The family of this 87-nucleotide RNA sequence from Kluyvera genomosp. 3 is "sroD RNA".
RNA sequence: UUACGUGACGAAGCCCGCGCCAAAGUGGACAAUAAGGGAUAAGUCACGAGUCAUGAUGCCUAACGCCAGCUCUGCUGGCGUUUUUUU
Numbered sequence: 001u002u003a004c005g006u007g008a009c010g011a012a013g014c015c016c017g018c019g020c021c022a023a024a025g026u027g028g029a030c031a032a033u034a035a036g037g038g039a040u041a042a043g044u045c046a047c048g049a050g051u052c053a054u055g056a057u058g059c060c061u062a063a064c065g066c067c068a069g070c071u072c073u074g075c076u077g078g079c080g081u082u083u084u085u086u087u
Stems, first nucleotide, its partner, number of pairs: 016058002020038002062082008

This family consists of a number of bacterial sroD RNA genes of around 90 bases in length. sroD is found in several Enterobacterial species but its function is unknown. The literature on the family includes a 2003 paper in Nucleic Acids Res by Vogel et al., "RNomics in Escherichia coli detects new sRNA species and indicates parallel transcriptional output in bacteria". By type it is a small RNA. The family's consensus secondary structure was predicted with PFOLD. Taxonomically the source falls in Kluyvera (Bacteria, Pseudomonadota, Gammaproteobacteria, Enterobacterales).